[Rfam]
RNA sequence: AUAAAGGGUCGGUUGGCUAUGUAUGCCACGCUCGCCCUCGACUGGUGAGUGCUGUAUGGCUAUCAAGACAUAUGGCCGACAUAAUUUGUGGGACUCAGCAGGGUUGGCUCGCUCGGCCGACCCUCUU
Numbered sequence: 001a002u003a004a005a006g007g008g009u010c011g012g013u014u015g016g017c018u019a020u021g022u023a024u025g026c027c028a029c030g031c032u033c034g035c036c037c038u039c040g041a042c043u044g045g046u047g048a049g050u051g052c053u054g055u056a057u058g059g060c061u062a063u064c065a066a067g068a069c070a071u072a073u074g075g076c077c078g079a080c081a082u083a084a085u086u087u088g089u090g091g092g093a094c095u096c097a098g099c100a101g102g103g104u105u106g107g108c109u110c111g112c113u114c115g116g117c118c119g120a121c122c123c124u125c126u127u
Base pairs, nucleotide, nucleotide: 008080009079010078011077012076014028015027016026017025029051030050031049032048033047034046035045036044052075053074054073055072056071057070058069098125101122103121104120105119106118107117109116110115
Dot-bracket structure: .......(((((.((((.......))))((((((((.......))))))))(((((((..........)))))))))))).................(..(.(((((.((....))))))))..)..
Shown here is a 127-nucleotide RNA sequence from Asparagus officinalis, a member of the family "U11 spliceosomal RNA". The base pairs follow the family's consensus structure, which is taken from published work.